[Rfam]
Shown here is a 94-nucleotide RNA sequence from Gallibacterium salpingitidis, a member of the family "Aggregatibacter sRNA 22". Pairs were carried over by alignment from the consensus structure, which was predicted with RNAfold. A search with the family's covariance model found it, with a score of 50 bits.

RNA sequence: AAGCAAUGACAAAAAGCGUUAGCUUUUUGAACGUUGCUUGCAACGACCCGUUAGGGUGAGCAAGUGAAUGAAGUUCACUUGCGAAUAAAAUGAA
Numbered sequence: 001a002a003g004c005a006a007u008g009a010c011a012a013a014a015a016g017c018g019u020u021a022g023c024u025u026u027u028u029g030a031a032c033g034u035u036g037c038u039u040g041c042a043a044c045g046a047c048c049c050g051u052u053a054g055g056g057u058g059a060g061c062a063a064g065u066g067a068a069u070g071a072a073g074u075u076c077a078c079u080u081g082c083g084a085a086u087a088a089a090a091u092g093a094a
Stems, first nucleotide, its partner, number of pairs: 010029008032045005046057004060082009

The family's RNA type in Rfam is small RNA.